Background
CRISPR RNA direct repeat element: a 37-nucleotide sequence from Crinalium epipsammum. The family's consensus secondary structure was predicted with WAR. Taxonomically the source falls in Crinalium epipsammum (Bacteria, Bacillati, Cyanophyceae, Gomontiellales).

[Rfam]
RNA sequence: AUUUCCGUCCCCUUGCGGGGAAAAGGUAGUAUCUGAC
Numbered sequence: 001a002u003u004u005c006c007g008u009c010c011c012c013u014u015g016c017g018g019g020g021a022a023a024a025g026g027u028a029g030u031a032u033c034u035g036a037c
Stems, first nucleotide, its partner, number of pairs: 005026002008021005

About this RNA:
Its family is annotated with defense response in the Gene Ontology.